[Rfam]
RNA: Small nucleolar RNA snoR104
RNA sequence: GGGGAGCAUCUGAAAGCUGAGAUGCUACCUGAUAAAAUCUUCCUAGAGAAAACUCUGUAUUUUCCUGCUUGUGGUACUUGAGCAAGUAUUGCGAGUCUCAAAUCUUCAGAGACAGAA
Numbered sequence: 001g002g003g004g005a006g007c008a009u010c011u012g013a014a015a016g017c018u019g020a021g022a023u024g025c026u027a028c029c030u031g032a033u034a035a036a037a038u039c040u041u042c043c044u045a046g047a048g049a050a051a052a053c054u055c056u057g058u059a060u061u062u063u064c065c066u067g068c069u070u071g072u073g074g075u076a077c078u079u080g081a082g083c084a085a086g087u088a089u090u091g092c093g094a095g096u097c098u099c100a101a102a103u104c105u106u107c108a109g110a111g112a113c114a115g116a117a
Stems, first nucleotide, its partner, number of pairs: 001030003005026007054110003067096008076087003